A member of the RNA family "Glycine riboswitch aptamer" from Metabacillus lacus, 91 nucleotides long. Taxonomically the source falls in Metabacillus (Bacteria, Bacillati, Bacillota, Caryophanales). The pairing is the family consensus, mapped onto this sequence.
RNA sequence: AUGACAGCAAGGGGAGAGACUGCAAUAAAAUUGCGGCGCCGAAGGAGCAAACGUCUGUGAAUCUCUCAGGCAAAAAGACUCUUGUUUGACG
Dot-bracket structure: .....((((((((......((((.........)))).(((((..(((...((....))....))))).))).......)))))))).....